SAM riboswitch aptamer (S box leader): a 112-nucleotide sequence from Sporotomaculum syntrophicum. NCBI's taxonomy places the organism under Bacteria, Bacillati, Eubacteriales, Desulfallaceae, Sporotomaculum.
[Rfam]
RNA sequence: CUCUUAUCCGGAGUGGUGGAGGGACUGGCCCUGUGAAACCCGGCAACCAGCUUUAUUUUACCUAAAGUAUGGUGCUAAUUCCAGCAGAAGUUGAACUUCUGGCAGAUAAGAG
Numbered sequence: 001c002u003c004u005u006a007u008c009c010g011g012a013g014u015g016g017u018g019g020a021g022g023g024a025c026u027g028g029c030c031c032u033g034u035g036a037a038a039c040c041c042g043g044c045a046a047c048c049a050g051c052u053u054u055a056u057u058u059u060a061c062c063u064a065a066a067g068u069a070u071g072g073u074g075c076u077a078a079u080u081c082c083a084g085c086a087g088a089a090g091u092u093g094a095a096c097u098u099c100u101g102g103c104a105g106a107u108a109a110g111a112g
Stems, first nucleotide, its partner, number of pairs: 001112008013041001015040003021031003025084004042076004047072002050068006080104001085101006